[Rfam]
Record summary
A member of the RNA family "U4atac minor spliceosomal RNA" from Stegodyphus mimosarum, 130 nucleotides long. The match comes from Rfam's covariance-model search (75 bits). From the family's description: U4atac is an essential component of the minor U12-type spliceosome complex which is required for removal of the rarer class of eukaryotic introns (AT-AC, U12-type). The family has 61 seed sequences and 1,648 matches in Rfam 15.1.

RNA sequence: ACCGUUCUUGUCUUGGGCAGUUGCUGCUCUGUGAACGCAAUGUGAGAGCAGUGUGCUGACAACCAUGUGACACAUAGUCUACCGCACCGCGCACCUGCUGCAGGUGCGUAUGGGUGCAAUUUUUGGAACC
Numbered sequence: 001a002c003c004g005u006u007c008u009u010g011u012c013u014u015g016g017g018c019a020g021u022u023g024c025u026g027c028u029c030u031g032u033g034a035a036c037g038c039a040a041u042g043u044g045a046g047a048g049c050a051g052u053g054u055g056c057u058g059a060c061a062a063c064c065a066u067g068u069g070a071c072a073c074a075u076a077g078u079c080u081a082c083c084g085c086a087c088c089g090c091g092c093a094c095c096u097g098c099u100g101c102a103g104g105u106g107c108g109u110a111u112g113g114g115u116g117c118a119a120u121u122u123u124u125g126g127a128a129c130c
Stems, first nucleotide, its partner, number of pairs: 005019001007017003020056002023052007035043002084117005090108006